The record is a 45-nucleotide RNA sequence from Burkholderia ambifaria, which matches "Guanidine-II riboswitch aptamer (mini-ykkC)" in Rfam. NCBI's taxonomy places the organism under Bacteria, Betaproteobacteria, Burkholderiales, Burkholderia, Burkholderia ambifaria. About the family: Simpler in structure and has fewer highly conserved nucleotide positions than the ykkC-yxkD leader. Despite this each of its two stem-loop structures directly bind free guanidine.
RNA sequence: GCCCGGGGACGACCCCGGGUCAUUCGAUUCAACGGGGACGGCCCC
Numbered sequence: 001g002c003c004c005g006g007g008g009a010c011g012a013c014c015c016c017g018g019g020u021c022a023u024u025c026g027a028u029u030c031a032a033c034g035g036g037g038a039c040g041g042c043c044c045c
Stems, first nucleotide, its partner, number of pairs: 001020008034045004